Small nucleolar RNA snR8: a 154-nucleotide sequence from Meyerozyma guilliermondii. On this family, see Parker et al., Mol Cell Biol 1988: "Genetic analysis of small nuclear RNAs in Saccharomyces cerevisiae: viable sextuple mutant". Rfam links the family to the GO terms RNA processing and nucleolus. The family's RNA type in Rfam is H/ACA-box small nucleolar RNA. It scores 73 bits against the family's covariance model.
RNA sequence: GAACUUUAUGAUACGAAGCUUCUCAUUCACUGCACCAUUCUAACCAUUGAGUGAUUGGAGGGGAAAGAGAAGCGAGAACAACUCGAAUUACGUCCUCAUACUAAGUUUUGCGAACUUUUCACGCAUUCUUGGAUCCUACGUUCUCGGUACAACC
Numbered sequence: 001g002a003a004c005u006u007u008a009u010g011a012u013a014c015g016a017a018g019c020u021u022c023u024c025a026u027u028c029a030c031u032g033c034a035c036c037a038u039u040c041u042a043a044c045c046a047u048u049g050a051g052u053g054a055u056u057g058g059a060g061g062g063g064a065a066a067g068a069g070a071a072g073c074g075a076g077a078a079c080a081a082c083u084c085g086a087a088u089u090a091c092g093u094c095c096u097c098a099u100a101c102u103a104a105g106u107u108u109u110g111c112g113a114a115c116u117u118u119u120c121a122c123g124c125a126u127u128c129u130u131g132g133a134u135c136c137u138a139c140g141u142u143c144u145c146g147g148u149a150c151a152a153c154c
Base pairs, nucleotide, nucleotide: 018073019072021070022069030060031059033057034056036053037052038051039050040049084146085145086144090141091140092139101132102131103130105128108125